The family of this 261-nucleotide RNA sequence from Octodon degus is "Mason-Pfizer monkey virus packaging signal". NCBI's taxonomy places the organism under Eukaryota, Gnathostomata, Tetrapoda, Octodontidae, Octodon.
RNA sequence: UGGCGCCCAGUGUGGAUCGAGAAUGGGGAUUUUGUGAGGGACACCGUUCGAGGUGUUGGCACACAAGUUAGAAUAGAGGAUCGGUCAACAUGGGAACCUGCUGUGUUUUCCAGGCCUCGGUAAGUGAACAGCGAUUAUGGGUCAAGAAAUAAGCCAGCAUGAAAUGUUUGUUGAAAGUUUAAGUAAGACUUUAAAGGCACGAGGAUUAAAGGUUUAAAAUUAAGGUUUUGUGUCAUUAUUUUGAAUAUAUUAAACAAGUUU
Numbered sequence: 001u002g003g004c005g006c007c008c009a010g011u012g013u014g015g016a017u018c019g020a021g022a023a024u025g026g027g028g029a030u031u032u033u034g035u036g037a038g039g040g041a042c043a044c045c046g047u048u049c050g051a052g053g054u055g056u057u058g059g060c061a062c063a064c065a066a067g068u069u070a071g072a073a074u075a076g077a078g079g080a081u082c083g084g085u086c087a088a089c090a091u092g093g094g095a096a097c098c099u100g101c102u103g104u105g106u107u108u109u110c111c112a113g114g115c116c117u118c119g120g121u122a123a124g125u126g127a128a129c130a131g132c133g134a135u136u137a138u139g140g141g142u143c144a145a146g147a148a149a150u151a152a153g154c155c156a157g158c159a160u161g162a163a164a165u166g167u168u169u170g171u172u173g174a175a176a177g178u179u180u181a182a183g184u185a186a187g188a189c190u191u192u193a194a195a196g197g198c199a200c201g202a203g204g205a206u207u208a209a210a211g212g213u214u215u216a217a218a219a220u221u222a223a224g225g226u227u228u229u230g231u232g233u234c235a236u237u238a239u240u241u242u243g244a245a246u247a248u249a250u251u252a253a254a255c256a257a258g259u260u261u
Base pairs, nucleotide, nucleotide: 006027007026008025033043034042035041076118077117078116081114082113084111089105090104091103092102093101125144126143127142129141132139133138150193151192152191153189155187200243201242202241203240204239205237207235210228211227212226213225214224215223
The family's consensus secondary structure was predicted with PFOLD.